[Rfam]
RNA: caulobacter sRNA CC2171
Organism: Allosphingosinicella deserti
RNA sequence: CAACAACUGAAAGGAGGUGGUCUGAUGUCUCAUUGUCACAUGCCGAACGCGGCUGAUCUGGUGAGCGCGGCCUCCGCGGAGGCUCGCGCCUAAGGAUUACGGCCGCAACCGGCUGACAAUGGAGAGGCCGUCCGGGCAACCGGGCGGCCUC
Numbered sequence: 001c002a003a004c005a006a007c008u009g010a011a012a013g014g015a016g017g018u019g020g021u022c023u024g025a026u027g028u029c030u031c032a033u034u035g036u037c038a039c040a041u042g043c044c045g046a047a048c049g050c051g052g053c054u055g056a057u058c059u060g061g062u063g064a065g066c067g068c069g070g071c072c073u074c075c076g077c078g079g080a081g082g083c084u085c086g087c088g089c090c091u092a093a094g095g096a097u098u099a100c101g102g103c104c105g106c107a108a109c110c111g112g113c114u115g116a117c118a119a120u121g122g123a124g125a126g127g128c129c130g131u132c133c134g135g136g137c138a139a140c141c142g143g144g145c146g147g148c149c150u151c
Base pairs, nucleotide, nucleotide: 016023017022031121032120033119034118035117036116037115044061048055049054070100073096074095075094078090079089081087104111105110124151125150126149127148128147129146130145131144132143133142134141135140